[Rfam]
Nucleotides: 245
Base pairs, nucleotide, nucleotide: 001245002244003243005241006240007239008238009237010235011234012214013213014212015211016210017209021028022027033232034231035230037229038228039227040226041225042183043182044181045180052179053178054177055176056175057072058071059070060069061068073086074085075084076083077082087174088173092171093170094169095168108158109157110156111155112154113153114152115151116150117149131140132139187196188195189194
Number, partner (000 for none) and nucleotide at each position: 001245g002244a003243g004000a005241g006240g007239u008238g009237g010235g011234g012214g013213g014212c015211g016210g017209c018000u019000u020000c021028c022027c023000g024000g025000g026000a027022g028021g029000a030000g031000g032000a033232a034231a035230g036000u037229c038228c039227c040226c041225c042183c043182a044181c045180c046000g047000u048000u049000a050000a051000c052179g053178g054177c055176g056175g057072g058071a059070c060069g061068c062000c063000g064000c065000a066000a067000g068061g069060c070059g071058u072057c073086a074085c075084g076083c077082c078000g079000a080000g081000a082077g083076g084075c085074g086073u087174g088173g089000c090000u091000c092171c093170g094169g095168c096000a097000c098000a099000g100000a101000a102000a103000c104000g105000a106000c107000a108158c109157c110156c111155g112154c113153u114152u115151g116150g117149g118000g119000a120000u121000a122000c123000g124000c125000g126000a127000g128000g129000a130000g131140g132139c133000c134000g135000a136000a137000a138000g139132g140131c141000u142000g143000a144000g145000a146000u147000c148000a149117c150116c151115c152114a153113a154112g155111c156110g157109g158108g159000a160000u161000g162000a163000a164000a165000c166000g167000c168095g169094c170093c171092g172000u173088c174087c175056c176055c177054g178053c179052c180045g181044g182043u183042g184000c185000a186000a187196g188195g189194c190000g191000u192000a193000a194189g195188c196187c197000g198000c199000u200000g201000a202000g203000a204000c205000g206000a207000a208000u209017g210016c211015c212014g213013c214012c215000u216000u217000a218000a219000a220000c221000a222000g223000a224000a225041g226040g227039g228038g229037g230035c231034u232033u233000a234011c235010c236000a237009c238008c239007a240006c241005c242000u243003c244002u245001c